[Rfam]
RNA sequence: CCAAUGCGAUGAUGCGGAAGGUUGCCCGCGUCGCGGGGAGAUUUCCGCAGAGAAUGUCCGUUCUAGAAACUGGACGAUAA
Dot-bracket structure: .............(((..(((...(((((...)))))....))).)))......((((.((((........)))))))).